[Rfam]
RNA sequence: GUUUUGCGCAAGGGAUGGCAGCGGCAUCCCCCGAUCUUUAUCGGGGAUAGAGCGUACAGCCCGACCUUGC
Numbered sequence: 001g002u003u004u005u006g007c008g009c010a011a012g013g014g015a016u017g018g019c020a021g022c023g024g025c026a027u028c029c030c031c032c033g034a035u036c037u038u039u040a041u042c043g044g045g046g047a048u049a050g051a052g053c054g055u056a057c058a059g060c061c062c063g064a065c066c067u068u069g070c
Base pairs, nucleotide, nucleotide: 012062013061014060016058017057021053022052026048027047028046029045031044032043033042034041035040
RNA: Flavo-1 RNA